[Rfam]
RNA sequence: GGUGAUAAACGGCCGCUGUAAUAAACCCUUCGGACCCGGGGGCAGUACCCGGCGCCUCCACCCAAGCCCUUGAUAUUAAGGGUUUCGGCGGGGGCGAAACAGGAUCGACGGGGGCGUAAAGAGCGGGCUUUUGCCCGGCAUGGCUCCACCGUUAUCGGGCCAUUCUAUAGUUGCCAACGACAACUAUGCUCCGGUUGCUCUGGCCGCGUGA
Numbered sequence: 001g002g003u004g005a006u007a008a009a010c011g012g013c014c015g016c017u018g019u020a021a022u023a024a025a026c027c028c029u030u031c032g033g034a035c036c037c038g039g040g041g042g043c044a045g046u047a048c049c050c051g052g053c054g055c056c057u058c059c060a061c062c063c064a065a066g067c068c069c070u071u072g073a074u075a076u077u078a079a080g081g082g083u084u085u086c087g088g089c090g091g092g093g094g095c096g097a098a099a100c101a102g103g104a105u106c107g108a109c110g111g112g113g114g115c116g117u118a119a120a121g122a123g124c125g126g127g128c129u130u131u132u133g134c135c136c137g138g139c140a141u142g143g144c145u146c147c148a149c150c151g152u153u154a155u156c157g158g159g160c161c162a163u164u165c166u167a168u169a170g171u172u173g174c175c176a177a178c179g180a181c182a183a184c185u186a187u188g189c190u191c192c193g194g195u196u197g198c199u200c201u202g203g204c205c206g207c208g209u210g211a
Base pairs, nucleotide, nucleotide: 001135002134003133004132005131014125015124016123017122026114027113028112030111031110032109036052037051038050039049040048053096054095055094056093057092058091059090136151137150138149
Dot-bracket structure: (((((........((((........(((.(((...(((((.......)))))(((((((..............................)))))))............)))))).......)))).....)))))(((..........)))............................................................

This 211-nucleotide sequence from Hansschlegelia quercus belongs to the Rfam family "permuted transfer-messenger RNA". Pairs were carried over by alignment from the consensus structure, which is taken from published work. Rfam links the family to the GO term RNA catabolic process. It scores 143 bits against the family's covariance model. The source organism's lineage runs through Bacteria, Pseudomonadati, Pseudomonadota, Hyphomicrobiales and Hansschlegelia. The family's RNA type in Rfam is non-coding RNA gene.